[Rfam]
A member of the RNA family "mir-2774 microRNA precursor family" from Bombyx mori, 67 nucleotides long. The family's consensus secondary structure was predicted with RNAalifold. It scores 78 bits against the family's covariance model. Rfam links the family to the GO terms RISC complex and miRNA-mediated post-transcriptional gene silencing.
RNA sequence: UCCAAACUGGGACCGUCGGUCUACCGAGCAAUGUCACCCGCUCGGUGGAAGAUCUUCCCUUUGUCGU
Numbered sequence: 001u002c003c004a005a006a007c008u009g010g011g012a013c014c015g016u017c018g019g020u021c022u023a024c025c026g027a028g029c030a031a032u033g034u035c036a037c038c039c040g041c042u043c044g045g046u047g048g049a050a051g052a053u054c055u056u057c058c059c060u061u062u063g064u065c066g067u
Base pairs, nucleotide, nucleotide: 004064006062010058011057012056015053016052017051020049021048022047023046024045025044026043027042028041029040